[Rfam]
RNA sequence: GUUCUGGUUCAAGAUUAGCCCCCGUUCUGUUGUCAGGUUAAACCUCUCAACGUGCGGGGGUUUUCU
Dot-bracket structure: ................(((((((((..(((((..(((.....)))..))))).)))))))))....
RNA: rdlD antitoxin